[Rfam]
RNA sequence: GUGCUUCAUGGUUUUAAGUUAUUCAGCAUGACCUAUUUGAUUGGUUCAAGUCUAUUCAUACUGUUGUAAAUGAAGCUAAAGCAAUUCUCCCUCGCUAUCCAUUGCAACCAUUAUGUUGUAAUUGGACGUUUGGGGGAUACAACU
Numbered sequence: 001g002u003g004c005u006u007c008a009u010g011g012u013u014u015u016a017a018g019u020u021a022u023u024c025a026g027c028a029u030g031a032c033c034u035a036u037u038u039g040a041u042u043g044g045u046u047c048a049a050g051u052c053u054a055u056u057c058a059u060a061c062u063g064u065u066g067u068a069a070a071u072g073a074a075g076c077u078a079a080a081g082c083a084a085u086u087c088u089c090c091c092u093c094g095c096u097a098u099c100c101a102u103u104g105c106a107a108c109c110a111u112u113a114u115g116u117u118g119u120a121a122u123u124g125g126a127c128g129u130u131u132g133g134g135g136g137a138u139a140c141a142a143c144u
Stems, first nucleotide, its partner, number of pairs: 001077001003076002007072002012070001015068002017065002024063003028059004035055002085137006093128002098126004107116002
The record is a 144-nucleotide sequence from Actinidia chinensis, which matches "Small nucleolar RNA snoR136" in Rfam. Its family is annotated with nucleolus and RNA processing in the Gene Ontology. The base pairs follow the family's consensus structure, which was predicted with mfold. Lineage of the source: Eukaryota > Viridiplantae > Tracheophyta > asterids > Actinidia chinensis. A search with the family's covariance model found it, with a score of 45 bits. It is annotated as an H/ACA-box small nucleolar RNA.